[Rfam]
RNA sequence: GGUGCAAGAGGCGAUCUGGGCUCUAGUGAAAUGUUUGUGCAUUUGUUGAAUGAAGUUGGAUUGCGAUUUUGUGUCUAGGCAAAAUAUGGAGAAAUGGUGGCCACGAUUGGACUCGAACCAACGACCACUACCA
Numbered sequence: 001g002g003u004g005c006a007a008g009a010g011g012c013g014a015u016c017u018g019g020g021c022u023c024u025a026g027u028g029a030a031a032u033g034u035u036u037g038u039g040c041a042u043u044u045g046u047u048g049a050a051u052g053a054a055g056u057u058g059g060a061u062u063g064c065g066a067u068u069u070u071g072u073g074u075c076u077a078g079g080c081a082a083a084a085u086a087u088g089g090a091g092a093a094a095u096g097g098u099g100g101c102c103a104c105g106a107u108u109g110g111a112c113u114c115g116a117a118c119c120a121a122c123g124a125c126c127a128c129u130a131c132c133a
Stems, first nucleotide, its partner, number of pairs: 024049001026047001030043004066074002095130006104123002107121004